RNA: SAM riboswitch aptamer (S box leader)
RNA sequence: UUCUCAUCCAGAGAGGUUGAGGGACUGGCCCGAUGAAACCUCGGCAACCUUCAGGUCCAUUCACCUGAAAAGGUGCCAAUUCCUGCAGCUGAAUUUCAUUUAUUCAGAGGCGAGAUGAGAG
Numbered sequence: 001u002u003c004u005c006a007u008c009c010a011g012a013g014a015g016g017u018u019g020a021g022g023g024a025c026u027g028g029c030c031c032g033a034u035g036a037a038a039c040c041u042c043g044g045c046a047a048c049c050u051u052c053a054g055g056u057c058c059a060u061u062c063a064c065c066u067g068a069a070a071a072g073g074u075g076c077c078a079a080u081u082c083c084u085g086c087a088g089c090u091g092a093a094u095u096u097c098a099u100u101u102a103u104u105c106a107g108a109g110g111c112g113a114g115a116u117g118a119g120a121g
Stems, first nucleotide, its partner, number of pairs: 001121008013042005021031003025085001027083002043077004048073002050069006081113001086110001089107006